[Rfam]
RNA sequence: UGUAUUUGACUGUAUUCGACUGUAUUUACGGCGUGAAACAAGGGAUUACACUAUUUUUAAACAGAAAGUGAAUCAUUUAACAUAAUAGACUCCU
Numbered sequence: 001u002g003u004a005u006u007u008g009a010c011u012g013u014a015u016u017c018g019a020c021u022g023u024a025u026u027u028a029c030g031g032c033g034u035g036a037a038a039c040a041a042g043g044g045a046u047u048a049c050a051c052u053a054u055u056u057u058u059a060a061a062c063a064g065a066a067a068g069u070g071a072a073u074c075a076u077u078u079a080a081c082a083u084a085a086u087a088g089a090c091u092c093c094u
Base pairs, nucleotide, nucleotide: 002091007088009086011084012083013082015080016079018078019077021075022074024073025072026071027070028069029068033062034061035057036056037055038054040052

MIR6152 microRNA precursor family: a 94-nucleotide sequence from Nicotiana attenuata. The source organism's lineage runs through Eukaryota, Mesangiospermae, Solanales, Nicotianoideae and Nicotiana. The family has 2 seed sequences and 5,807 matches in Rfam 15.1. Pairs were carried over by alignment from the consensus structure, which was predicted with RNAalifold. Gene Ontology terms of the family: RISC complex and miRNA-mediated post-transcriptional gene silencing.